[Rfam]
The record is a 355-nucleotide part of an RNA from Lachnospiraceae bacterium oral taxon 500, which matches "Bacterial small subunit ribosomal RNA" in Rfam. Its family is annotated with ribosome and structural constituent of ribosome in the Gene Ontology. The match comes from Rfam's covariance-model search (1562 bits). Taxonomically the source falls in Lachnospiraceae bacterium oral taxon 500 (Bacteria, Bacillota, Clostridia, Lachnospiraceae). The family's consensus secondary structure is taken from published work.
RNA sequence: GGUGUAAAGGGAGCGCAGACGGCAAUGCAAGUCUGAAGUGAAAGGCGUGGGCUCAACCCAUGAACUGCUUUGGAAACUGUAUAGCUUGAGUGUCGGAGGGGUAAGCGGAAUUCCUAGUGUAGCGGUGAAAUGCGUAGAUAUUAGGAGGAACACCGGAGGCGAAGGCGGCUUACUGGACGACAACUGACGUUGAGGCUCGAAGGCGUGGGGAGCAAACAGGAUUAGAUACCCUGGUAGUCCACGCAGUAAACGAUGAAUACUUGGUGUCGGAGAGGUAAACUCUUCGGUGCCGCAAGCUAACGCAUUAAGUAUUCCACCUGGGGAGUACGUUCGCAAGAAUGAAACUCAAAGGAAU
Numbered sequence: 001g002g003u004g005u006a007a008a009g010g011g012a013g014c015g016c017a018g019a020c021g022g023c024a025a026u027g028c029a030a031g032u033c034u035g036a037a038g039u040g041a042a043a044g045g046c047g048u049g050g051g052c053u054c055a056a057c058c059c060a061u062g063a064a065c066u067g068c069u070u071u072g073g074a075a076a077c078u079g080u081a082u083a084g085c086u087u088g089a090g091u092g093u094c095g096g097a098g099g100g101g102u103a104a105g106c107g108g109a110a111u112u113c114c115u116a117g118u119g120u121a122g123c124g125g126u127g128a129a130a131u132g133c134g135u136a137g138a139u140a141u142u143a144g145g146a147g148g149a150a151c152a153c154c155g156g157a158g159g160c161g162a163a164g165g166c167g168g169c170u171u172a173c174u175g176g177a178c179g180a181c182a183a184c185u186g187a188c189g190u191u192g193a194g195g196c197u198c199g200a201a202g203g204c205g206u207g208g209g210g211a212g213c214a215a216a217c218a219g220g221a222u223u224a225g226a227u228a229c230c231c232u233g234g235u236a237g238u239c240c241a242c243g244c245a246g247u248a249a250a251c252g253a254u255g256a257a258u259a260c261u262u263g264g265u266g267u268c269g270g271a272g273a274g275g276u277a278a279a280c281u282c283u284u285c286g287g288u289g290c291c292g293c294a295a296g297c298u299a300a301c302g303c304a305u306u307a308a309g310u311a312u313u314c315c316a317c318c319u320g321g322g323g324a325g326u327a328c329g330u331u332c333g334c335a336a337g338a339a340u341g342a343a344a345c346u347c348a349a350a351g352g353a354a355u
Base pairs, nucleotide, nucleotide: 001318002317003316009315011198012197013196014195016192018191019190020189022085023084025082026081027080028079030078031077032074033073034072035071036070037069038068039067040066046062047061048060049059050058051057089185090184091183092181093180094179095178100174101173102172103171104170105169106168107151111147112146113145114144115143116142117141118140122133123132124131159166160165203244204243205242206241207240208239212238213237217233218232219231220230255314256313257312258311259310260309263291264290265289266288267287268286269285270284271283272282273281274280296303297302320347321346322345329340330339331338332337